[Rfam]
RNA sequence: AUUUUCGAAAGAUCUCUCAGGAUCGCUGGAGUUGAUUAAUAUAAUUUUACCAGGUAGAGAUAAUGAUUAGAGGAAUCAGGGAAAUCGUUUUCCUUGACCUAUUCUCAAACUCCCAAUAGGUAAAAAGGGCCGAAAUAACUUUAUUUGUAUUUCGCCCAAUUUCUUUUUUGUAAAUAAAAUAACUCCAAGUGGGCCAUUUUUGGUAAGCAGAACUGGCGAUGAGGGAUGCUCCUAACGCUUGGAUAAGGUGCCUAAAUAUUCGCUCAUGAGAUCCCAUAAAAGGUGUUGGUUCAUAAUGACAGUAGGACGGUGGUCAUGGAAGUCGAAAUCCGCUAAGGAGUGUGUAACAACUCACCUACCGAAUGAACUAGCCCUGAAAAUGGAUGGCGCUAAAGCGAAUUACCGAUACCAAGCCAUAGAAGGGAAAGAAAAAAGAUUUAGUACUUUCGAGUGCUUCUUCUUCUUUUAGGAACCUUCUAUGAGUAGAAAAUCGUGGGGUUUUGUGUAGAAGCGAAAUACGUGAGUUUUCGUGGAACAUAUCCCUAGUGCAGAU
Numbered sequence: 001a002u003u004u005u006c007g008a009a010a011g012a013u014c015u016c017u018c019a020g021g022a023u024c025g026c027u028g029g030a031g032u033u034g035a036u037u038a039a040u041a042u043a044a045u046u047u048u049a050c051c052a053g054g055u056a057g058a059g060a061u062a063a064u065g066a067u068u069a070g071a072g073g074a075a076u077c078a079g080g081g082a083a084a085u086c087g088u089u090u091u092c093c094u095u096g097a098c099c100u101a102u103u104c105u106c107a108a109a110c111u112c113c114c115a116a117u118a119g120g121u122a123a124a125a126a127g128g129g130c131c132g133a134a135a136u137a138a139c140u141u142u143a144u145u146u147g148u149a150u151u152u153c154g155c156c157c158a159a160u161u162u163c164u165u166u167u168u169u170g171u172a173a174a175u176a177a178a179a180u181a182a183c184u185c186c187a188a189g190u191g192g193g194c195c196a197u198u199u200u201u202g203g204u205a206a207g208c209a210g211a212a213c214u215g216g217c218g219a220u221g222a223g224g225g226a227u228g229c230u231c232c233u234a235a236c237g238c239u240u241g242g243a244u245a246a247g248g249u250g251c252c253u254a255a256a257u258a259u260u261c262g263c264u265c266a267u268g269a270g271a272u273c274c275c276a277u278a279a280a281a282g283g284u285g286u287u288g289g290u291u292c293a294u295a296a297u298g299a300c301a302g303u304a305g306g307a308c309g310g311u312g313g314u315c316a317u318g319g320a321a322g323u324c325g326a327a328a329u330c331c332g333c334u335a336a337g338g339a340g341u342g343u344g345u346a347a348c349a350a351c352u353c354a355c356c357u358a359c360c361g362a363a364u365g366a367a368c369u370a371g372c373c374c375u376g377a378a379a380a381u382g383g384a385u386g387g388c389g390c391u392a393a394a395g396c397g398a399a400u401u402a403c404c405g406a407u408a409c410c411a412a413g414c415c416a417u418a419g420a421a422g423g424g425a426a427a428g429a430a431a432a433a434a435g436a437u438u439u440a441g442u443a444c445u446u447u448c449g450a451g452u453g454c455u456u457c458u459u460c461u462u463c464u465u466u467u468a469g470g471a472a473c474c475u476u477c478u479a480u481g482a483g484u485a486g487a488a489a490a491u492c493g494u495g496g497g498g499u500u501u502u503g504u505g506u507a508g509a510a511g512c513g514a515a516a517u518a519c520g521u522g523a524g525u526u527u528u529c530g531u532g533g534a535a536c537a538u539a540u541c542c543c544u545a546g547u548g549c550a551g552a553u
Stems, first nucleotide, its partner, number of pairs: 001491006011024005027187007045125007057113001058111002064107003069102001071100003076097006084090001127168003132163004193217004198212005222233003237414005247404003256401001258400001261397003281375003285372010302359005308332003314326002333337001338353001342351002415481009492548001494545005500539001503536002511531002518525002
Rfam assigns this 553-nucleotide part of an RNA from Plasmodium knowlesi to the family "Eukaryotic large subunit ribosomal RNA". The family's consensus secondary structure is taken from published work. Taxonomically the source falls in Plasmodium knowlesi (Eukaryota, Aconoidasida, Plasmodiidae, Plasmodium).